[Rfam]
RNA sequence: AUAAAAAGAGGGAGUGCAGAGGGGUCCGCCCUCUGCCGUUAAGGAGGGUGCUCAGGCUGCUAUGCAGCCGCCGAAGGGAAC
Number, nucleotide and partner (000 for none) at each position: 001a000002u000003a000004a000005a000006a000007a000008g000009a000010g000011g000012g000013a000014g000015u000016g036017c035018a034019g033020a032021g031022g030023g029024g000025u000026c000027c000028g000029c023030c022031c021032u020033c019034u018035g017036c016037c000038g000039u000040u000041a000042a000043g000044g000045a000046g000047g000048g000049u000050g000051c000052u000053c000054a000055g069056g068057c067058u066059g065060c000061u000062a000063u000064g000065c059066a058067g057068c056069c055070g000071c000072c000073g000074a000075a000076g000077g000078g000079a000080a000081c000
This 81-nucleotide RNA sequence belongs to the Rfam family "Clostridiales-2 RNA". Pairs were carried over by alignment from the consensus structure, which is taken from published work. The family's RNA type in Rfam is small RNA. Rfam's curators put it in the seed alignment.